[Rfam]
RNA sequence: CCCUGCAAAUAUAGAAUAUUGAUUUUAUUACUUAUUGUUUUAAUCCUUGUAAAAUCAUUUCAUAUUGAAAUUGGUUACUAUAAAUAUUCAUUUUAGUCCUCAUUUUGAAGGACUAAAAUUAAAUAUUCUACGUAUUACAAGGACAAAAUCCUAUAUGAAUUAAUUUUAGAAGGACUAAAACAAAAUAUCAAGGAUUAAAAUCAAAUUUUUUAUAUUUAGAGGAA
Numbered sequence: 001c002c003c004u005g006c007a008a009a010u011a012u013a014g015a016a017u018a019u020u021g022a023u024u025u026u027a028u029u030a031c032u033u034a035u036u037g038u039u040u041u042a043a044u045c046c047u048u049g050u051a052a053a054a055u056c057a058u059u060u061c062a063u064a065u066u067g068a069a070a071u072u073g074g075u076u077a078c079u080a081u082a083a084a085u086a087u088u089c090a091u092u093u094u095a096g097u098c099c100u101c102a103u104u105u106u107g108a109a110g111g112a113c114u115a116a117a118a119u120u121a122a123a124u125a126u127u128c129u130a131c132g133u134a135u136u137a138c139a140a141g142g143a144c145a146a147a148a149u150c151c152u153a154u155a156u157g158a159a160u161u162a163a164u165u166u167u168a169g170a171a172g173g174a175c176u177a178a179a180a181c182a183a184a185a186u187a188u189c190a191a192g193g194a195u196u197a198a199a200a201u202c203a204a205a206u207u208u209u210u211u212a213u214a215u216u217u218a219g220a221g222g223a224a
Base pairs, nucleotide, nucleotide: 007217008216009215010214011213012212013211015209016208018206019205020204021202022201023200024199025198026197027196029194031192032191033190035183036182037181038180039179040178041177042176044174045173047171048170050168051167052166053165054164055163059159060158062156063155064154065153067151071147072146074144075143076142081137082136084135085134086133087132102119103118104117105116106115
A member of the RNA family "MIR2630 microRNA precursor family" from Medicago truncatula, 224 nucleotides long. The family's consensus secondary structure was predicted with RNAalifold. The organism belongs to Medicago, within Eukaryota.